Small nucleolar RNA SNORD81: a 79-nucleotide RNA from Sus scrofa. Its Rfam clan is "SNORD26 clan". NCBI's taxonomy places the organism under Eukaryota, Chordata, Sarcopterygii, Amniota, Sus. By type it is a C/D-box small nucleolar RNA.
RNA sequence: UAGAAUACAUGAUGAUCUCACCCUAACUUGAACUCUCUCACUGAUUAUGUGUGAUGAUGAUCAAAGAUCUGAUAUUCUG
Numbered sequence: 001u002a003g004a005a006u007a008c009a010u011g012a013u014g015a016u017c018u019c020a021c022c023c024u025a026a027c028u029u030g031a032a033c034u035c036u037c038u039c040a041c042u043g044a045u046u047a048u049g050u051g052u053g054a055u056g057a058u059g060a061u062c063a064a065a066g067a068u069c070u071g072a073u074a075u076u077c078u079g
Stems, first nucleotide, its partner, number of pairs: 001079007